[Rfam]
RNA sequence: UGCGCCGGAGCCGAGGGCUGAGCCCCGGCCGUGCGCGCCGCGAACUCGUGGAGCUGCGCGUGCGGCCGGUGCUCAGCCUGCCGGGCCCCGGCCCCGCGCU
Numbered sequence: 001u002g003c004g005c006c007g008g009a010g011c012c013g014a015g016g017g018c019u020g021a022g023c024c025c026c027g028g029c030c031g032u033g034c035g036c037g038c039c040g041c042g043a044a045c046u047c048g049u050g051g052a053g054c055u056g057c058g059c060g061u062g063c064g065g066c067c068g069g070u071g072c073u074c075a076g077c078c079u080g081c082c083g084g085g086c087c088c089c090g091g092c093c094c095c096g097c098g099c100u
Stems, first nucleotide, its partner, number of pairs: 002099004007095002010092004015087002018084001019075005024069002027067008037057002040054001045053003
This 100-nucleotide RNA from Equus asinus belongs to the Rfam family "mir-1199 microRNA precursor family". The match comes from Rfam's covariance-model search (85 bits). Rfam 15.1 lists 95 matches to the family in 94 species.